[Rfam]
RNA sequence: AGCACUGUACGGUAUCUGCAGCCAGCUGCUUUCUCAGCUGGUUAGUUCAUAAGUCAGUGCGAGACAAACUCAAUAACUGGCAUCGUUGGUCUCCAUGCUGCCUGUGUGUGGAGUCCUGGUAUGUUAUUUGAAACAUUA
Numbered sequence: 001a002g003c004a005c006u007g008u009a010c011g012g013u014a015u016c017u018g019c020a021g022c023c024a025g026c027u028g029c030u031u032u033c034u035c036a037g038c039u040g041g042u043u044a045g046u047u048c049a050u051a052a053g054u055c056a057g058u059g060c061g062a063g064a065c066a067a068a069c070u071c072a073a074u075a076a077c078u079g080g081c082a083u084c085g086u087u088g089g090u091c092u093c094c095a096u097g098c099u100g101c102c103u104g105u106g107u108g109u110g111g112a113g114u115c116c117u118g119g120u121a122u123g124u125u126a127u128u129u130g131a132a133a134c135a136u137u138a
Base pairs, nucleotide, nucleotide: 002060003059004058005057006056007055014054015053017051018046019045020043021042022041023040024039025038026037027036028035063127066124068122070119071118072117080105081104082103
RNA: Small nucleolar RNA SNORA8
Organism: Dissostichus mawsoni